RNA sequence: AAUGAAACUUUCUAGGGUUCCGCUACUCAGUAGGUCUGGUCCGAGGGAAAGUGCAGCUUUUUCUAGUGCUGUUCACGGAGGGAAAAAAGCCCGGGAGAU
Numbered sequence: 001a002a003u004g005a006a007a008c009u010u011u012c013u014a015g016g017g018u019u020c021c022g023c024u025a026c027u028c029a030g031u032a033g034g035u036c037u038g039g040u041c042c043g044a045g046g047g048a049a050a051g052u053g054c055a056g057c058u059u060u061u062u063c064u065a066g067u068g069c070u071g072u073u074c075a076c077g078g079a080g081g082g083a084a085a086a087a088a089g090c091c092c093g094g095g096a097g098a099u
Stems, first nucleotide, its partner, number of pairs: 007052006015042002020039002022036001023033004053072005059066002074094001076097001080092003